[Rfam]
RNA sequence: AGGUCACAAUCAACAUUCAUUGCUGUCGGUGGGUUUAACUGUAUGGAAGAGCUCACUGAACGAUGAAUGCAACUGUGUCCCA
Number, nucleotide and partner (000 for none) at each position: 001a000002g081003g080004u000005c077006a076007c075008a074009a000010u000011c000012a000013a000014c069015a068016u067017u066018c065019a064020u063021u062022g061023c000024u000025g000026u059027c058028g057029g056030u055031g054032g000033g052034u051035u050036u049037a000038a000039c000040u000041g000042u000043a000044u000045g000046g000047a000048a000049g036050a035051g034052c033053u000054c031055a030056c029057u028058g027059a026060a000061c022062g021063a020064u019065g018066a017067a016068u015069g014070c000071a000072a000073c000074u008075g007076u006077g005078u000079c000080c003081c002082a000